This 52-nucleotide RNA sequence from Trypanosoma conorhini belongs to the Rfam family "Trypanosomatid snoRNA TB10Cs2H1". On this family, see Liang et al., RNA 2005: "A genome-wide analysis of C/D and H/ACA-like small nucleolar RNAs in Trypanosoma brucei reveals a trypanosome-specific pattern of rRNA modification". The organism belongs to Trypanosoma, within Eukaryota.
RNA sequence: GUUGUCGGUUGGGUCAGCGGCACGUGUUCUCCCUGUAACCCUAUCCUGCGAC
Dot-bracket structure: (((((.....(((.........................)))......)))))